[Rfam]
This 173-nucleotide RNA sequence from Jeotgalibacillus soli belongs to the Rfam family "Group II catalytic intron D1-D4-3". The organism belongs to Jeotgalibacillus, within Bacteria. The base pairs follow the family's consensus structure.
RNA sequence: UCCGAGGUGACGUGGAAUUUGAAGGAAGCGAGCGGCAAACUUUCGGUCUGAGGAACACGAACUUCAUAUGAGGUUAGGUAUCAUUGGAUGAAUUUCCAUAACAAAACGAAGUCCUUUCUGCCGAAGGUGAUACUGAGUAAAUGAAGUUGAUAGAUGGAAGGAAAGAUUGCAAU
Numbered sequence: 001u002c003c004g005a006g007g008u009g010a011c012g013u014g015g016a017a018u019u020u021g022a023a024g025g026a027a028g029c030g031a032g033c034g035g036c037a038a039a040c041u042u043u044c045g046g047u048c049u050g051a052g053g054a055a056c057a058c059g060a061a062c063u064u065c066a067u068a069u070g071a072g073g074u075u076a077g078g079u080a081u082c083a084u085u086g087g088a089u090g091a092a093u094u095u096c097c098a099u100a101a102c103a104a105a106a107c108g109a110a111g112u113c114c115u116u117u118c119u120g121c122c123g124a125a126g127g128u129g130a131u132a133c134u135g136a137g138u139a140a141a142u143g144a145a146g147u148u149g150a151u152a153g154a155u156g157g158a159a160g161g162a163a164a165g166a167u168u169g170c171a172a173u
Stems, first nucleotide, its partner, number of pairs: 001016004006011001028173001036165001040160006046151003050147001062146006073138003077134007086114004093106003
Rfam describes the family as follows. Group II introns are found in rRNA, tRNA and mRNA of organelles in fungi, plants and protists, and also in mRNA in bacteria.